[Rfam]
RNA sequence: ACAAGUUCAAAGCCACAGCAGAAGCACCCAUCGUGUGGCCAUGUCAGAUUUCAACAAAUCUGCAAAUUCUGCU
Dot-bracket structure: ...........[[[..((((((((((.......)))]]].....(((((((....)))))))....)))))))
The family of this 73-nucleotide RNA from Crocodylus porosus is "Mammalian CPEB3 ribozyme".
A search with the family's covariance model found it, with a score of 44 bits.
The mammalian CPEB3 ribozyme is a self cleaving RNA located in the second intron of the CPEB3 gene which belongs to a family of genes regulating messenger RNA polyadenylation.
Pairs were carried over by alignment from the consensus structure, which is taken from published work.